[Rfam]
Annotation: A member of the RNA family "T-box leader" from Tepidanaerobacter syntrophicus, 264 nucleotides long. Rfam describes the family as follows. Uncharged tRNA acts as the effector for transcription antitermination of genes in the T-box leader family. Rfam classes the family as a cis-regulatory leader.
RNA sequence: AGAAAGACUAUGAAGGGAAGAGUAAGCAAGCAGAAUAGGCCUAAAGAGAGCCGGAAAAGGUGAAAGCCGGCGCCGAAGACCUUGCUGAAGAUGGCCCCGGAGUUUGGUCGUCGAUAUGUAGACGACUGCGGUGAAGGACCGUUAUAAUCCUUCAGGUAUCGGAAUAGUGGCUGAAAGCCUGUCCAUUUACUUUAUUCCCGUACUUGGCAAAGGCCUUUAACCAGGCGAAUUUGGGUGGUACCGCGAGAAUGCCUCGCCCCUUAC
Numbered sequence: 001a002g003a004a005a006g007a008c009u010a011u012g013a014a015g016g017g018a019a020g021a022g023u024a025a026g027c028a029a030g031c032a033g034a035a036u037a038g039g040c041c042u043a044a045a046g047a048g049a050g051c052c053g054g055a056a057a058a059g060g061u062g063a064a065a066g067c068c069g070g071c072g073c074c075g076a077a078g079a080c081c082u083u084g085c086u087g088a089a090g091a092u093g094g095c096c097c098c099g100g101a102g103u104u105u106g107g108u109c110g111u112c113g114a115u116a117u118g119u120a121g122a123c124g125a126c127u128g129c130g131g132u133g134a135a136g137g138a139c140c141g142u143u144a145u146a147a148u149c150c151u152u153c154a155g156g157u158a159u160c161g162g163a164a165u166a167g168u169g170g171c172u173g174a175a176a177g178c179c180u181g182u183c184c185a186u187u188u189a190c191u192u193u194a195u196u197c198c199c200g201u202a203c204u205u206g207g208c209a210a211a212g213g214c215c216u217u218u219a220a221c222c223a224g225g226c227g228a229a230u231u232u233g234g235g236u237g238g239u240a241c242c243g244c245g246a247g248a249a250u251g252c253c254u255c256g257c258c259c260c261u262u263a264c
Base pairs, nucleotide, nucleotide: 007103008102015098016097017096025086026085027084028083029082030081038074039073041072050071051070052069053068054067106127107126108125109124110123111122112121129141130140131139233260234259235258243257244256245255246254247253